[Rfam]
RNA sequence: CAAUGUCUUCAGGGCGGGGUGUGAUUCCCCACUGGCGGUAUAGUCCGCGACCGGAUCUGUUCGCAGGUCCGCUGACCCGGUGAAACUCCGGGACCAACGGUAUAGUCCGGAUGGAAGAAGAUGUGU
Numbered sequence: 001c002a003a004u005g006u007c008u009u010c011a012g013g014g015c016g017g018g019g020u021g022u023g024a025u026u027c028c029c030c031a032c033u034g035g036c037g038g039u040a041u042a043g044u045c046c047g048c049g050a051c052c053g054g055a056u057c058u059g060u061u062c063g064c065a066g067g068u069c070c071g072c073u074g075a076c077c078c079g080g081u082g083a084a085a086c087u088c089c090g091g092g093a094c095c096a097a098c099g100g101u102a103u104a105g106u107c108c109g110g111a112u113g114g115a116a117g118a119a120g121a122u123g124u125g126u
Base pairs, nucleotide, nucleotide: 003124004123005122006121007120008119009118010117017029018028019027031106032105033096034095035048036047037046038045043094044093052071053070076092077091078090079089080088098109099108100107
This 126-nucleotide RNA sequence from Flintibacter faecis belongs to the Rfam family "FMN riboswitch aptamer (RFN element)".